[Rfam]
RNA: Burkholderia sRNA 1
Organism: Paraburkholderia lacunae
RNA sequence: AGUUCUGAUGCAGCACGAAUUUUGCAGGCGGAGAACGAGGAGACAAUGAGGCACUCAGUGCCCAGACGAAAGCGCUGUUGGAUUAAUAUCCGACAGCGCUUUUUA
Numbered sequence: 001a002g003u004u005c006u007g008a009u010g011c012a013g014c015a016c017g018a019a020u021u022u023u024g025c026a027g028g029c030g031g032a033g034a035a036c037g038a039g040g041a042g043a044c045a046a047u048g049a050g051g052c053a054c055u056c057a058g059u060g061c062c063c064a065g066a067c068g069a070a071a072g073c074g075c076u077g078u079u080g081g082a083u084u085a086a087u088a089u090c091c092g093a094c095a096g097c098g099c100u101u102u103u104u105a
Stems, first nucleotide, its partner, number of pairs: 002036004009032001011030001014027001016024003040067001047064002050062005069102014